[Rfam]
Nucleotides: 076
Stems, first nucleotide, its partner, number of pairs: 001074015017058008026049002030045002033042003
Number, partner (000 for none) and nucleotide at each position: 001074a002073c003072c004071g005070c006069g007068u008067a009066c010065u011064u012063a013062c014061c015060u016000g017058c018057u019056g020055u021054a022053u023052a024051g025000u026049a027048g028000g029000a030045g031044a032000g033042a034041u035040a036000c037000a038000u039000a040035u041034g042033u043000u044031u045030c046000a047000g048027c049026u050000c051024c052023u053022a054021u055020a056019u057018a058017g059000u060015a061014g062013g063012u064011a065010a066009g067008u068007a069006c070005g071004c072003g073002g074001u075000u076000u
Shown here is a 76-nucleotide RNA sequence from Ameiurus melas, a member of the family "mir-7563 microRNA precursor family".
The source organism's lineage runs through Eukaryota, Deuterostomia, Clupeocephala, Otomorpha and Ameiurus.
Pairs were carried over by alignment from the consensus structure, which was predicted with RNAalifold.